A member of the RNA family "Selenocysteine insertion sequence 1" from Salmo trutta, 66 nucleotides long.
Rfam links the family to the GO term selenocysteine incorporation.
Taxonomically the source falls in Salmo (Eukaryota, Vertebrata, Teleostei, Salmonidae).
[Rfam]
RNA sequence: CCUGGACCAGUGACGGCCUGUCUGUAAACCCGGCCUGCGGGGAGGACAGGCCUGAUGAAACCUAGC
Dot-bracket structure: .((((.........(((((((((......(((.....)))...))))))))).........)))).
Numbered sequence: 001c002c003u004g005g006a007c008c009a010g011u012g013a014c015g016g017c018c019u020g021u022c023u024g025u026a027a028a029c030c031c032g033g034c035c036u037g038c039g040g041g042g043a044g045g046a047c048a049g050g051c052c053u054g055a056u057g058a059a060a061c062c063u064a065g066c
Stems, first nucleotide, its partner, number of pairs: 002065004015052009030040003